[Rfam]
The family of this 358-nucleotide sequence from Alloalcanivorax marinus is "transfer-messenger RNA". It scores 209 bits against the family's covariance model. The base pairs follow the family's consensus structure, which is taken from published work.

RNA sequence: GGGGGCGACAUGGCUUCGACGCCGGUAAAGAAACCUGUGGUGCAUGUCGAGUAGCGUCGCAAUGCUCGUAAAUCCCUUGUGGCAUACUAAAGUAAUCGCAAACGACGAUACUUACGCACUAGCGGCUUAAACCCCGCUUAUCGCCAAACGACCCAGCCUGUGGGGAAGUGCGGCGAGCAUCGCUACACAGGCUCGCAGCAAAGUCCGUCCCGGACGGCGCUGUUAAAACCUUAAGGGACUCGGUGACUGCGCCCUGUCUGUCGGGCCGCAGCCACUUAAAUCAAUAGACCUGACUAAACAUGUAGAUCCACAGGCGGAUUGCUGGCGGACGCGGGUUCGAUUCCCGCCGCCUCCACCA
Number, nucleotide and partner (000 for none) at each position: 001g354002g353003g352004g351005g350006c349007g348008a000009c000010a000011u000012g000013g000014c000015u000016u000017c000018g000019a000020c327021g326022c325023c324024g323025g322026u321027a320028a319029a000030g000031a000032a000033a000034c314035c313036u000037g311038u310039g309040g308041u000042g000043c302044a301045u300046g299047u298048c068049g067050a066051g065052u064053a000054g000055c000056g083057u082058c081059g080060c079061a078062a077063u000064g052065c051066u050067c049068g048069u000070a000071a000072a000073u000074c000075c000076c000077u062078u061079g060080u059081g058082g057083c056084a000085u000086a000087c000088u000089a000090a000091a000092g000093u000094a000095a000096u000097c000098g000099c000100a000101a000102a000103c000104g000105a000106c000107g000108a000109u000110a000111c000112u000113u000114a000115c000116g000117c000118a000119c000120u140121a139122g137123c136124g135125g134126c000127u000128u000129a000130a000131a000132c000133c000134c125135c124136g123137c122138u000139u121140a120141u176142c175143g174144c173145c172146a000147a000148a169149c168150g000151a000152c164153c163154c000155a000156g192157c191158c190159u189160g188161u187162g186163g153164g152165g000166a000167a000168g149169u148170g000171c000172g145173g144174c143175g142176a141177g000178c000179a000180u000181c000182g000183c000184u000185a000186c162187a161188c160189a159190g158191g157192c156193u000194c000195g000196c222197a221198g220199c219200a000201a000202a000203g000204u000205c000206c000207g240208u000209c000210c237211c236212g000213g000214a000215c000216g000217g000218c000219g199220c198221u197222g196223u000224u000225a000226a000227a000228a000229c000230c000231u000232u000233a000234a000235g000236g211237g210238a000239c000240u207241c000242g276243g275244u274245g273246a000247c271248u270249g269250c268251g267252c265253c264254c263255u000256g294257u293258c292259u000260g289261u288262c287263g254264g253265g252266c000267c251268g250269c249270a248271g247272c000273c245274a244275c243276u242277u000278a000279a000280a000281u000282c000283a000284a000285u000286a000287g262288a261289c260290c000291u000292g258293a257294c256295u000296a000297a000298a047299c046300a045301u044302g043303u000304a000305g000306a000307u000308c040309c039310a038311c037312a000313g035314g034315c000316g000317g000318a000319u028320u027321g026322c025323u024324g023325g022326c021327g020328g000329a000330c000331g347332c346333g345334g344335g343336u000337u000338c000339g000340a000341u000342u000343c335344c334345c333346g332347c331348c007349g006350c005351c004352u003353c002354c001355a000356c000357c000358a000

Bacterial tmRNA, also known as 10Sa RNA or SsrA, is named for its dual tRNA and mRNA-like properties. Its role is to liberate the mRNA from a stalled ribosome.